[Rfam]
RNA: Cupriavidus-1 RNA
Organism: Cupriavidus plantarum
RNA sequence: CCUGCUUAGCGGUUACCGGCCAUGUGGCCGAAGGCGAAGCAAGACCCAUACCGGCAACCGUGCACCGCGCGGGUGCGG
Numbered sequence: 001c002c003u004g005c006u007u008a009g010c011g012g013u014u015a016c017c018g019g020c021c022a023u024g025u026g027g028c029c030g031a032a033g034g035c036g037a038a039g040c041a042a043g044a045c046c047c048a049u050a051c052c053g054g055c056a057a058c059c060g061u062g063c064a065c066c067g068c069g070c071g072g073g074u075g076c077g078g
Stems, first nucleotide, its partner, number of pairs: 001043001003041004007036001009035002011016001017030005052078001054076003058072005